[Rfam]
RNA sequence: AUCGCUUCUCGGCCUUUUGGCUAAGAUCAUGUGUAGUAUCUGUUCUUUUCAGAAUAAUAUCUGAAAUGCUGCUCAUCGAGCAGCAAGUAUAUUAAUCUGAUUUUUGGAUGAUCGGCCAUGGAAUAGGGGCUUGCCGUCCUGGCCACGGGUUGGCCCGGUUUGCACUACUGCCGGGAUCGGCCACACUCCC
Number, nucleotide and partner (000 for none) at each position: 001a000002u000003c000004g000005c000006u000007u026008c025009u024010c000011g022012g021013c020014c019015u000016u000017u000018u000019g014020g013021c012022u011023a000024a009025g008026a007027u000028c000029a000030u000031g000032u000033g000034u000035a000036g000037u000038a000039u000040c000041u000042g000043u000044u000045c000046u000047u066048u065049u064050c063051a062052g061053a000054a000055u000056a000057a000058u000059a000060u000061c052062u051063g050064a049065a048066a047067u000068g084069c083070u082071g081072c080073u079074c078075a000076u000077c000078g074079a073080g072081c071082a070083g069084c068085a000086a000087g000088u000089a000090u000091a000092u000093u000094a000095a000096u000097c000098u000099g000100a000101u000102u000103u000104u000105u000106g000107g000108a000109u000110g000111a000112u000113c000114g144115g143116c142117c141118a140119u000120g138121g137122a000123a000124u000125a000126g000127g000128g135129g134130c000131u000132u000133g000134c129135c128136g000137u121138c120139c000140u118141g117142g116143c115144c114145a000146c000147g000148g182149g181150u180151u179152g178153g000154c175155c174156c173157g172158g171159u170160u000161u000162g000163c000164a000165c000166u000167a000168c000169u000170g159171c158172c157173g156174g155175g154176a000177u000178c152179g151180g150181c149182c148183a000184c000185a000186c000187u000188c000189c000190c000
RNA: U2 spliceosomal RNA